A member of the RNA family "Enterococcus sRNA 2410" from Enterococcus cecorum, 176 nucleotides long. A reference for the family is Sinel et al. (2017), "Small RNAs in vancomycin-resistant Enterococcus faecium involved in daptomycin response and resistance", Sci Rep. The family's RNA type in Rfam is small RNA. NCBI's taxonomy places the organism under Bacteria, Bacilli, Enterococcaceae, Enterococcus, Enterococcus cecorum. Rfam describes the family as follows. Produced as 2 transcripts on Northern blot.
[Rfam]
Nucleotides: 176
Base pairs, nucleotide, nucleotide: 001078002077003076004075005074006073007072011068012067013066014065015064016063018048019047020046021045022044023043024042025041026040027039028038029037052061053060054059082154084152087149088148090146091145101134102133103132104131105130106129108126109125110124155175156174157173158172160170161169
Number, partner (000 for none) and nucleotide at each position: 001078u002077u003076a004075g005074c006073u007072a008000u009000u010000u011068u012067a013066g014065a015064u016063a017000g018048g019047u020046u021045u022044g023043u024042a025041u026040u027039c028038a029037u030000a031000u032000u033000c034000a035000u036000u037029a038028u039027g040026g041025g042024u043023a044022c045021a046020a047019a048018c049000g050000a051000a052061a053060a054059g055000u056000a057000u058000g059054u060053u061052u062000g063016u064015a065014u066013c067012u068011a069000u070000g071000a072007u073006g074005g075004c076003u077002a078001a079000a080000g081000c082154a083000u084152u085000u086000a087149a088148u089000c090146u091145u092000g093000c094000a095000u096000a097000c098000a099000c100000u101134a102133g103132c104131c105130a106129c107000g108126u109125a110124g111000a112000g113000a114000u115000c116000g117000c118000a119000a120000c121000a122000a123000u124110c125109u126108a127000c128000a129106g130105u131104g132103g133102c134101u135000u136000u137000u138000u139000u140000c141000u142000u143000u144000u145091a146090a147000c148088g149087u150000a151000c152084a153000c154082u155175u156174u157173g158172a159000u160170u161169g162000u163000u164000g165000u166000a167000g168000a169161c170160a171000u172158u173157u174156a175155a176000a